RNA sequence: GUCAUGGUGUGCGGGAUCUUUAGUUGUGGUGUGCAAACUCUCAGUUGCAGCUUGUGGGAUCCAGUUCCAUGACCAA
Number, nucleotide and partner (000 for none) at each position: 001g073002u072003c071004a070005u069006g068007g067008u000009g000010u000011g000012c000013g000014g062015g061016a060017u059018c058019u000020u057021u056022a055023g000024u000025u000026g051027u050028g000029g000030u000031g000032u049033g048034c047035a046036a045037a000038c000039u000040c000041u000042c000043a000044g000045u036046u035047g034048c033049a032050g027051c026052u000053u000054g000055u022056g021057g020058g018059a017060u016061c015062c014063a000064g000065u000066u000067c007068c006069a005070u004071g003072a002073c001074c000075a000076a000
mir-3432 microRNA precursor family: a 76-nucleotide RNA from Bos taurus.
The family has 4 seed sequences and 21 matches in Rfam 15.1.
The sequence is in the family's curated seed alignment.
The source organism's lineage runs through Eukaryota, Euteleostomi, Theria, Bovidae and Bos.